[Rfam]
RNA sequence: CGCGUUAUAAUCCCGUCAAGCGCGCACAUGCGAGAGCUUGCUCGCGGCAUGUAGCGCAUUUGACGGGAUGACGCGACAUGAACACGAAGGCCGAUAGGUCGGAGUGUGAAUGCCGCGCAGAAAUGCGGGAGCACGAAGUGCGAAGCAAUUCUGUGUUAACGCG
Dot-bracket structure: (((((((....((((...((.(((((((((((.(((....))).).)))))).)))).))...))))....((((.(((..((((...((((....))))...))))..))).))))..(((.(((....((((...))))...))).))).....)))))))
Numbered sequence: 001c002g003c004g005u006u007a008u009a010a011u012c013c014c015g016u017c018a019a020g021c022g023c024g025c026a027c028a029u030g031c032g033a034g035a036g037c038u039u040g041c042u043c044g045c046g047g048c049a050u051g052u053a054g055c056g057c058a059u060u061u062g063a064c065g066g067g068a069u070g071a072c073g074c075g076a077c078a079u080g081a082a083c084a085c086g087a088a089g090g091c092c093g094a095u096a097g098g099u100c101g102g103a104g105u106g107u108g109a110a111u112g113c114c115g116c117g118c119a120g121a122a123a124u125g126c127g128g129g130a131g132c133a134c135g136a137a138g139u140g141c142g143a144a145g146c147a148a149u150u151c152u153g154u155g156u157u158a159a160c161g162c163g
Stems, first nucleotide, its partner, number of pairs: 001163007012067004019060002022057004026052006032045001034043003072117004077112003082107004089100004120151003124147003131141004
Clostridiales-1 RNA: a 163-nucleotide sequence from Coprococcus eutactus. Taxonomically the source falls in Coprococcus eutactus (Bacteria, Bacillati, Clostridia, Lachnospiraceae). The family has 194 seed sequences and 1,172 matches in Rfam 15.1. The family's consensus secondary structure is taken from published work.